[Rfam]
RNA sequence: AUCCGCUCUGGAGAUGGCAUUCCUCCAUUCCUGCGCCGCAGGACAAACCGCCGCUUUCCGGCUGAUGAUGCCCGCCCUUUC
Dot-bracket structure: .........[[[[..((((((.]]]].......................((((.....))))....)))))).........

Rfam assigns this 81-nucleotide RNA sequence from Aquimonas voraii to the family "Fluoride riboswitch aptamer (crcB RNA motif)".
Lineage of the source: Bacteria > Pseudomonadota > Lysobacterales > Lysobacteraceae > Aquimonas.